[Rfam]
RNA: Small nucleolar RNA Z199
Organism: Brassica carinata
RNA sequence: AGAUCAAUUGAUGAGCAAAUACUGCAACAAUAUGAAGGAGAAACUCUUCAUGAUUAUUAGUAUUUUACAUUCUCUGAUGACU
Numbered sequence: 001a002g003a004u005c006a007a008u009u010g011a012u013g014a015g016c017a018a019a020u021a022c023u024g025c026a027a028c029a030a031u032a033u034g035a036a037g038g039a040g041a042a043a044c045u046c047u048u049c050a051u052g053a054u055u056a057u058u059a060g061u062a063u064u065u066u067a068c069a070u071u072c073u074c075u076g077a078u079g080a081c082u
Stems, first nucleotide, its partner, number of pairs: 001082002004080003037049005